[Rfam]
RNA sequence: AGAUUUAUUCGUAAAGUAGCGAAUAGGGUAAUCAAAAAAAAUACUUAAAGAGA
Numbered sequence: 001a002g003a004u005u006u007a008u009u010c011g012u013a014a015a016g017u018a019g020c021g022a023a024u025a026g027g028g029u030a031a032u033c034a035a036a037a038a039a040a041a042u043a044c045u046u047a048a049a050g051a052g053a
Stems, first nucleotide, its partner, number of pairs: 006025006014046004
Rfam assigns this 53-nucleotide sequence from Fusobacterium sp. FSA-380-WT-3A to the family "6A RNA".
The base pairs follow the family's consensus structure, which is taken from published work.